The record is a 145-nucleotide RNA from Pseudomonas putida, which matches "Pseudomonas sRNA P14" in Rfam. A reference for the family is Livny et al. (2006), "Identification of 17 Pseudomonas aeruginosa sRNAs and prediction of sRNA-encoding genes in 10 diverse pathogens using the bioinformatic tool sRNAPredict2", Nucleic Acids Res. Lineage of the source: Bacteria > Pseudomonadati > Gammaproteobacteria > Pseudomonas > Pseudomonas putida. The sequence is in the family's curated seed alignment.
RNA sequence: CUGCACAUUUUUUUCACAGACACGUCGCAAAUCUUGUCGGCGCGGAGUCAAGCAACAUUUUUUUUGCAGUUCUUGCGCUCUGUCAGUUUACUUACUACAAGUAAUGGGUACUAUGUACGCCGGCCAGUUUCUCUUUCCUGAGAGA
Numbered sequence: 001c002u003g004c005a006c007a008u009u010u011u012u013u014u015c016a017c018a019g020a021c022a023c024g025u026c027g028c029a030a031a032u033c034u035u036g037u038c039g040g041c042g043c044g045g046a047g048u049c050a051a052g053c054a055a056c057a058u059u060u061u062u063u064u065u066g067c068a069g070u071u072c073u074u075g076c077g078c079u080c081u082g083u084c085a086g087u088u089u090a091c092u093u094a095c096u097a098c099a100a101g102u103a104a105u106g107g108g109u110a111c112u113a114u115g116u117a118c119g120c121c122g123g124c125c126a127g128u129u130u131c132u133c134u135u136u137c138c139u140g141a142g143a144g145a
Stems, first nucleotide, its partner, number of pairs: 036078002040074001042072001044070001049066004082124003086120002089117003093113002096110003100105001128145006